[Rfam]
Nucleotides: 030
Base pairs, nucleotide, nucleotide: 001030002029003028004027005026006025007024008023009022010021011020012019013017
Number, partner (000 for none) and nucleotide at each position: 001030a002029a003028g004027u005026c006025a007024u008023g009022g010021g011020g012019a013017c014000a015000g016000u017013g018000c019012u020011c021010c022009c023008c024007a025006u026005g027004a028003c029002u030001u
Overview
Iron response element II: a 30-nucleotide sequence from Chiloscyllium punctatum. Gene Ontology term of the family: response to iron ion. The base pairs follow the family's consensus structure, which is taken from published work. The organism belongs to Chiloscyllium, within Eukaryota. IRE, TFRC, SLC40A1, SDHB, SLC11A2, CDC42BPA, ACO2, ALAS2_H.SAPIENS, CDC14A, EPAS1, ALAS2, qoxD, Hao1, NDUFS1, transferrin, Aconitate. It is annotated as a cis-regulatory element.